This 122-nucleotide RNA from Clostridium thermosuccinogenes belongs to the Rfam family "THF (Tetrahydrofolate) riboswitch aptamer". Tetrahydrofolate (THF) riboswitch was first reported for Ames et al. as an RNA motif in 5' untranslated (5'-UTR)regions of folate transport and biosynthesis genes in Firmicutes genomes.

RNA sequence: GGCAAAGUAGGGGUCAACGCGUUAAGUGCCGGUUGGAUGGGAAGUUGCCGCCGGACGAAAAAUCCUUAUGGCAAAGGCGCCAUAGUAAGUGAUUUGCGGUGUUGAUUCUGCAUUCCGUUGCC
Numbered sequence: 001g002g003c004a005a006a007g008u009a010g011g012g013g014u015c016a017a018c019g020c021g022u023u024a025a026g027u028g029c030c031g032g033u034u035g036g037a038u039g040g041g042a043a044g045u046u047g048c049c050g051c052c053g054g055a056c057g058a059a060a061a062a063u064c065c066u067u068a069u070g071g072c073a074a075a076g077g078c079g080c081c082a083u084a085g086u087a088a089g090u091g092a093u094u095u096g097c098g099g100u101g102u103u104g105a106u107u108c109u110g111c112a113u114u115c116c117g118u119u120g121c122c
Stems, first nucleotide, its partner, number of pairs: 001122005010109010020098003026056002029054005035049002040115003044111001060095004
NCBI's taxonomy places the organism under Bacteria, Bacillati, Bacillota, Clostridia, Clostridium.
The family has 101 seed sequences and 747 matches in Rfam 15.1.
The family's consensus secondary structure is taken from published work.